The family of this 61-nucleotide RNA sequence from Stutzerimonas stutzeri is "Xanthine riboswitch aptamer (NMT1 RNA)".
[Rfam]
RNA sequence: UCUUCGAGUAGAAGCGGUUAGCGCCAGCGGGUUUCCGGUGGCGUGGGACAUUGCUCUUGCG
Numbered sequence: 001u002c003u004u005c006g007a008g009u010a011g012a013a014g015c016g017g018u019u020a021g022c023g024c025c026a027g028c029g030g031g032u033u034u035c036c037g038g039u040g041g042c043g044u045g046g047g048a049c050a051u052u053g054c055u056c057u058u059g060c061g
Stems, first nucleotide, its partner, number of pairs: 006056005015046001018048002021044006
Lineage of the source: Bacteria > Pseudomonadota > Pseudomonadaceae > Stutzerimonas > Stutzerimonas stutzeri. It is one of the family's seed sequences. The literature on the family includes a 2020 paper in RNA by Yu and Breaker, "A bacterial riboswitch class senses xanthine and uric acid to regulate genes associated with purine oxidation". Pairs were carried over by alignment from the consensus structure, which is taken from published work.